[Rfam]
RNA sequence: CCCGCAACUAGACGAAAAGACCCCGUGCACCUUUACUGUAAGCUGGUAUUGCAUUUUGGUGAUAUUUGUAGAGCUUAGCCGGGAGACUGUGAAAGCGAGGUGCUAGCUUCGCUGGAGUCUUCAGUGAAAUACCGGUCUAAUGUUUCUAGAAUGCUAACUCAAGCCUGUGAAACCAGGCAGGGAACAGUGCCAGCCGGGCAGUUUGACUGGGGCGGUCGCCUCCUAAAGCGUAACGGAGGCGUUCAAAGGUGGGCUUAGUGCAGUUGGCAAUUGCACGUUAAGGGCAAAUCCAUAGAGCCCGCUUAACUGCGAGACCUACAAGUCGAGCAGAUGCGAAAGCAGGAAUUAGUGAUCCGGUGGUGGAAUUUGGAAUCGCCAUCGCUCAUCGGACAAAAGGUACGCCGGGGAUAACAGGCUGAUCUCCUCCAAGAGUUCACAUCGACGAGGAGGUUUGGCACCUCGAUGUCGGCUCAUCACAUCCUGGGGCUGGAGAAGGUCCCAAGGGUUCGGCUGUUCGCCGAUUAAAGUGGUACGUGAGCUGGGUUCAGAACGUCGUGAGACAGUUCGGUCUCUAUCUGUUGUGGGCGUA
Numbered sequence: 001c002c003c004g005c006a007a008c009u010a011g012a013c014g015a016a017a018a019g020a021c022c023c024c025g026u027g028c029a030c031c032u033u034u035a036c037u038g039u040a041a042g043c044u045g046g047u048a049u050u051g052c053a054u055u056u057u058g059g060u061g062a063u064a065u066u067u068g069u070a071g072a073g074c075u076u077a078g079c080c081g082g083g084a085g086a087c088u089g090u091g092a093a094a095g096c097g098a099g100g101u102g103c104u105a106g107c108u109u110c111g112c113u114g115g116a117g118u119c120u121u122c123a124g125u126g127a128a129a130u131a132c133c134g135g136u137c138u139a140a141u142g143u144u145u146c147u148a149g150a151a152u153g154c155u156a157a158c159u160c161a162a163g164c165c166u167g168u169g170a171a172a173c174c175a176g177g178c179a180g181g182g183a184a185c186a187g188u189g190c191c192a193g194c195c196g197g198g199c200a201g202u203u204u205g206a207c208u209g210g211g212g213c214g215g216u217c218g219c220c221u222c223c224u225a226a227a228g229c230g231u232a233a234c235g236g237a238g239g240c241g242u243u244c245a246a247a248g249g250u251g252g253g254c255u256u257a258g259u260g261c262a263g264u265u266g267g268c269a270a271u272u273g274c275a276c277g278u279u280a281a282g283g284g285c286a287a288a289u290c291c292a293u294a295g296a297g298c299c300c301g302c303u304u305a306a307c308u309g310c311g312a313g314a315c316c317u318a319c320a321a322g323u324c325g326a327g328c329a330g331a332u333g334c335g336a337a338a339g340c341a342g343g344a345a346u347u348a349g350u351g352a353u354c355c356g357g358u359g360g361u362g363g364a365a366u367u368u369g370g371a372a373u374c375g376c377c378a379u380c381g382c383u384c385a386u387c388g389g390a391c392a393a394a395a396g397g398u399a400c401g402c403c404g405g406g407g408a409u410a411a412c413a414g415g416c417u418g419a420u421c422u423c424c425u426c427c428a429a430g431a432g433u434u435c436a437c438a439u440c441g442a443c444g445a446g447g448a449g450g451u452u453u454g455g456c457a458c459c460u461c462g463a464u465g466u467c468g469g470c471u472c473a474u475c476a477c478a479u480c481c482u483g484g485g486g487c488u489g490g491a492g493a494a495g496g497u498c499c500c501a502a503g504g505g506u507u508c509g510g511c512u513g514u515u516c517g518c519c520g521a522u523u524a525a526a527g528u529g530g531u532a533c534g535u536g537a538g539c540u541g542g543g544u545u546c547a548g549a550a551c552g553u554c555g556u557g558a559g560a561c562a563g564u565u566c567g568g569u570c571u572c573u574a575u576c577u578g579u580u581g582u583g584g585g586c587g588u589a
Stems, first nucleotide, its partner, number of pairs: 001585008010577003014572002022406004027402002029398005035202004042194007051154009061144006068137001078136005085119003094113008158182003163178005205217004218240006241387001243344002249302006255281002258276006282291002307330004313324003332341003355381007363374002415456003419453001420450007430440002467542001468540004472534001473531005480505002483500006507521005548566004552561003
The record is a 589-nucleotide part of an RNA from an uncultured bacterium, which matches "Bacterial large subunit ribosomal RNA" in Rfam. Rfam's curators put it in the seed alignment. Rfam links the family to the GO terms ribosome and structural constituent of ribosome. Pairs were carried over by alignment from the consensus structure, which is taken from published work.